[Rfam]
RNA sequence: AUAUUUGUGCAGGGGAGCUUCUAACCCGAGGCUGAGAGGAGGACGGAAGUCCUCGACCCUUGAACCUGAUCCGGGUAAUGCCGGCGUAGGGAGCAAACCAAAAACAAAA
Numbered sequence: 001a002u003a004u005u006u007g008u009g010c011a012g013g014g015g016a017g018c019u020u021c022u023a024a025c026c027c028g029a030g031g032c033u034g035a036g037a038g039g040a041g042g043a044c045g046g047a048a049g050u051c052c053u054c055g056a057c058c059c060u061u062g063a064a065c066c067u068g069a070u071c072c073g074g075g076u077a078a079u080g081c082c083g084g085c086g087u088a089g090g091g092a093g094c095a096a097a098c099c100a101a102a103a104a105c106a107a108a109a
Stems, first nucleotide, its partner, number of pairs: 006097001008095003011060004017032005039054005065090004071084004
RNA: TPP riboswitch aptamer (THI element)
Organism: Pseudothermotoga lettingae